[Rfam]
Description: This 199-nucleotide RNA from Microvirga tunisiensis belongs to the Rfam family "Bradyrhizobiaceae sRNA BjrC174". Taxonomically the source falls in Microvirga (Bacteria, Pseudomonadota, Hyphomicrobiales, Methylobacteriaceae). Pairs were carried over by alignment from the consensus structure.

RNA sequence: AUCACCGGUUCUUUUGCAAAUCUUAUUCCUGCCUCAUUCGUGCCGCGAUGGAGCCAAACUGAAUGCCGUUAAUGCUUAAGUUGCCUCGACGGCCCGGCUCAUCGAACGGCUUGGACACGUCAGCCCCCCAGCCCUCUGAGUUGCUUGAGGAGCCGGGCCACCCUCGAGACACAGGGCUGCCUCCCAAGGCAGCCUUUUC
Number, nucleotide and partner (000 for none) at each position: 001a000002u000003c000004a000005c000006c000007g000008g000009u000010u000011c000012u000013u000014u000015u000016g000017c000018a000019a000020a000021u000022c000023u000024u000025a000026u000027u000028c000029c000030u000031g000032c000033c000034u175035c174036a000037u000038u000039c047040g046041u000042g000043c000044c000045g000046c040047g039048a000049u000050g000051g000052a000053g000054c000055c000056a000057a000058a000059c000060u000061g000062a000063a000064u000065g000066c000067c000068g000069u000070u000071a000072a000073u000074g000075c000076u000077u000078a000079a000080g000081u000082u000083g170084c000085c168086u167087c166088g165089a164090c000091g159092g158093c157094c156095c155096g154097g153098c152099u151100c150101a000102u000103c000104g000105a000106a000107c143108g142109g141110c140111u139112u138113g137114g136115a000116c000117a000118c000119g000120u000121c000122a000123g132124c131125c000126c000127c000128c000129c000130a000131g124132c123133c000134c000135u000136c114137u113138g112139a111140g110141u109142u108143g107144c000145u000146u000147g000148a000149g000150g100151a099152g098153c097154c096155g095156g094157g093158c092159c091160a000161c000162c000163c000164u089165c088166g087167a086168g085169a000170c083171a000172c000173a000174g035175g034176g000177c000178u000179g000180c000181c000182u000183c000184c000185c000186a000187a195188g194189g193190c000191a000192g000193c189194c188195u187196u000197u000198u000199c000